[Rfam]
About this RNA:
Shown here is a 600-nucleotide part of an RNA from Pichia californica, a member of the family "Eukaryotic small subunit ribosomal RNA". Taxonomically the source falls in Pichia (Eukaryota, Opisthokonta, Pichiomycetes, Pichiaceae).
RNA sequence: UAUCUGGUUGAUCCUGCCAGUAGUCAUAUGCUUGUCUCAAAGAUUAAGCCAUGCAUGUCUAAGUAUAAGCAUUAUACGGUGAAACUGCGAAUGGCUCAUUAAAUCAGUUAUCGUUUAUUUGAUAGUUCCGUUCUACAUGGAUAACCGUGGAAAAUCUAGAGCUAAUACAUGCGUAAAGCCCCGACUUUUGGAGGGGUGUAUUUAUUAGAUAAAAAAUCAAUGCCUUCGGGCCUUUUGAUGAUUCAUAAUAACUUUUCGAAGCCCAUGGCCUUGUGCCGGCGGCUGGUUCAUUCAAAUUUCUGCCCUAUCAACUUUCGAUGGUAGGAUAGAGGCCUACCAUGGUUUUCACGGGUAACGGGGAAUAAGGGUUCGAUUCCGGAGAGGGAGCCUGAGAAACGGCUACCACAUCCAAGGAAGGCAGCAGGCGCGCAAAUUACCCAAUCCUGACACAGGGAGGUAGUGACAAUAUAUAACGAUACAGGGCCAUUGGUCUUGUAAUUGGAAUGAGUACAAUGUAAAUACCUUAACGAGGAACAAUUGGAGGGCAAGUCUGGUGCCAGCAGCCGCGGUAAUUCCAGCUCCAAUAGCGUAUAUUAAAGU
Numbered sequence: 001u002a003u004c005u006g007g008u009u010g011a012u013c014c015u016g017c018c019a020g021u022a023g024u025c026a027u028a029u030g031c032u033u034g035u036c037u038c039a040a041a042g043a044u045u046a047a048g049c050c051a052u053g054c055a056u057g058u059c060u061a062a063g064u065a066u067a068a069g070c071a072u073u074a075u076a077c078g079g080u081g082a083a084a085c086u087g088c089g090a091a092u093g094g095c096u097c098a099u100u101a102a103a104u105c106a107g108u109u110a111u112c113g114u115u116u117a118u119u120u121g122a123u124a125g126u127u128c129c130g131u132u133c134u135a136c137a138u139g140g141a142u143a144a145c146c147g148u149g150g151a152a153a154a155u156c157u158a159g160a161g162c163u164a165a166u167a168c169a170u171g172c173g174u175a176a177a178g179c180c181c182c183g184a185c186u187u188u189u190g191g192a193g194g195g196g197u198g199u200a201u202u203u204a205u206u207a208g209a210u211a212a213a214a215a216a217u218c219a220a221u222g223c224c225u226u227c228g229g230g231c232c233u234u235u236u237g238a239u240g241a242u243u244c245a246u247a248a249u250a251a252c253u254u255u256u257c258g259a260a261g262c263c264c265a266u267g268g269c270c271u272u273g274u275g276c277c278g279g280c281g282g283c284u285g286g287u288u289c290a291u292u293c294a295a296a297u298u299u300c301u302g303c304c305c306u307a308u309c310a311a312c313u314u315u316c317g318a319u320g321g322u323a324g325g326a327u328a329g330a331g332g333c334c335u336a337c338c339a340u341g342g343u344u345u346u347c348a349c350g351g352g353u354a355a356c357g358g359g360g361a362a363u364a365a366g367g368g369u370u371c372g373a374u375u376c377c378g379g380a381g382a383g384g385g386a387g388c389c390u391g392a393g394a395a396a397c398g399g400c401u402a403c404c405a406c407a408u409c410c411a412a413g414g415a416a417g418g419c420a421g422c423a424g425g426c427g428c429g430c431a432a433a434u435u436a437c438c439c440a441a442u443c444c445u446g447a448c449a450c451a452g453g454g455a456g457g458u459a460g461u462g463a464c465a466a467u468a469u470a471u472a473a474c475g476a477u478a479c480a481g482g483g484c485c486a487u488u489g490g491u492c493u494u495g496u497a498a499u500u501g502g503a504a505u506g507a508g509u510a511c512a513a514u515g516u517a518a519a520u521a522c523c524u525u526a527a528c529g530a531g532g533a534a535c536a537a538u539u540g541g542a543g544g545g546c547a548a549g550u551c552u553g554g555u556g557c558c559a560g561c562a563g564c565c566g567c568g569g570u571a572a573u574u575c576c577a578g579c580u581c582c583a584a585u586a587g588c589g590u591a592u593a594u595u596a597a598a599g600u
Base pairs, nucleotide, nucleotide: 004020005019006018007017008016022595023594024593026592027591028590029589030588031587032586034469035468037466041461042428048426049425050424052423053422054421057088058087062086063085064084069080070079095381096380097379105302106301107300110297111296114295115294120290121289122288136171137170138169139168145161148158149157150156178197179196180195181194182193185190202251203250204249205248206247207246216239217238218237219236222231223230224229261283262282263281264279266278267277268276269275304352305351306350311343312342313341318340319339320338321337322336323335324334325333356378357377358376359375360371361370362369363368383404384403386401387400388399406417408415409414434459436458437457438456442454443453444452445451446450474501475500476499477497478496479495480494481493482492483491484490485489508528509527510525512524538584539583540582541581542580543579551578552577553576554575560567561566

The base pairs follow the family's consensus structure, which is taken from published work. The family is grouped with related families in Rfam's "SSU clan". A reference for the family is Cannone et al. (2002), "The comparative RNA web (CRW) site: an online database of comparative sequence and structure information for ribosomal, intron, and other RNAs", BMC Bioinformatics.